A member of the RNA family "TD-2 RNA" from Treponema vincentii, 98 nucleotides long. The base pairs follow the family's consensus structure, which is taken from published work.
RNA sequence: AGCGGCAUGGAUGCCGCUCGUAUUACACAGAAGCGAUGUUUCGGCUCCGUCCGAAACUCGCAGCCAAAAGUGUACAAGGAUGUACACUUUUGGCGUUG
Numbered sequence: 001a002g003c004g005g006c007a008u009g010g011a012u013g014c015c016g017c018u019c020g021u022a023u024u025a026c027a028c029a030g031a032a033g034c035g036a037u038g039u040u041u042c043g044g045c046u047c048c049g050u051c052c053g054a055a056a057c058u059c060g061c062a063g064c065c066a067a068a069a070g071u072g073u074a075c076a077a078g079g080a081u082g083u084a085c086a087c088u089u090u091u092g093g094c095g096u097u098g
Base pairs, nucleotide, nucleotide: 001018002017003016004015005014006013034060035059036058038057039056040055041054042053043052044051063094064093065092066091067090068089069088070087071086072085073084074083075082